The family of this 174-nucleotide sequence from Streptomyces carminius is "c-di-AMP riboswitch aptamer (ydaO/yuaA leader)". Rfam's curators write: This family represents a conserved RNA structure found upstream of the ydaO and yuaA genes in Bacillus subtilis and related genes in other bacteria. Rfam links the family to the GO terms cyclic-di-AMP binding and regulation of gene expression. Taxonomically the source falls in Streptomyces (Bacteria, Actinomycetota, Actinomycetes, Kitasatosporales).

RNA sequence: GUCGCGUCAGCGCCGCUGGCAGGAGCGGGGGAACCAGGUAGGCGCCGCCGCGGGCGUACCGCGCCCGCGGCGGCUUGGGGUGAAGCCGGUACGGGGACGCCCGUCCCCGUACCGGCCGGGCUGCUCACGGCCCGAACCCGACAGCUCACCUCGCAGGCGUCGGUGAGUAGGGAC
Numbered sequence: 001g002u003c004g005c006g007u008c009a010g011c012g013c014c015g016c017u018g019g020c021a022g023g024a025g026c027g028g029g030g031g032a033a034c035c036a037g038g039u040a041g042g043c044g045c046c047g048c049c050g051c052g053g054g055c056g057u058a059c060c061g062c063g064c065c066c067g068c069g070g071c072g073g074c075u076u077g078g079g080g081u082g083a084a085g086c087c088g089g090u091a092c093g094g095g096g097a098c099g100c101c102c103g104u105c106c107c108c109g110u111a112c113c114g115g116c117c118g119g120g121c122u123g124c125u126c127a128c129g130g131c132c133c134g135a136a137c138c139c140g141a142c143a144g145c146u147c148a149c150c151u152c153g154c155a156g157g158c159g160u161c162g163g164u165g166a167g168u169a170g171g172g173a174c
Stems, first nucleotide, its partner, number of pairs: 002024002025154006035077005078139003086115013118133004